[Rfam]
Nucleotides: 114
Base pairs, nucleotide, nucleotide: 010105017098018097019096020095021094022093023092024091026089027088028087029086030085031084032083033082034081035080
Number, partner (000 for none) and nucleotide at each position: 001000u002000g003000g004000a005000a006000g007000a008000a009000u010105c011000u012000g013000u014000c015000a016000a017098g018097c019096u020095c021094a022093g023092g024091a025000g026089g027088g028087a029086u030085a031084g032083c033082g034081c035080c036000a037000u038000g039000a040000a041000c042000a043000u044000a045000u046000a047000u048000a049000c050000a051000u052000a053000u054000g055000g056000c057000a058000g059000c060000a061000u062000g063000g064000u065000u066000g067000g068000c069000c070000u071000g072000u073000g074000a075000u076000c077000a078000a079000c080035g081034g082033c083032g084031c085030u086029a087028u088027c089026c090000a091024u092023c093022c094021u095020g096019a097018g098017c099000c100000u101000c102000a103000u104000g105010g106000c107000u108000u109000c110000u111000u112000c113000u114000u